[Rfam]
RNA sequence: UCCGUCGAGGAGCGCUGCGACCUCACCCCAGCGGGAAAGGCCAGGCUCGACGCGGUGCCGGCAACAAACGGCGCUCGCCCAAC
Numbered sequence: 001u002c003c004g005u006c007g008a009g010g011a012g013c014g015c016u017g018c019g020a021c022c023u024c025a026c027c028c029c030a031g032c033g034g035g036a037a038a039g040g041c042c043a044g045g046c047u048c049g050a051c052g053c054g055g056u057g058c059c060g061g062c063a064a065c066a067a068a069c070g071g072c073g074c075u076c077g078c079c080c081a082a083c
Base pairs, nucleotide, nucleotide: 003052004051005050006049007048008047021040022039023038026035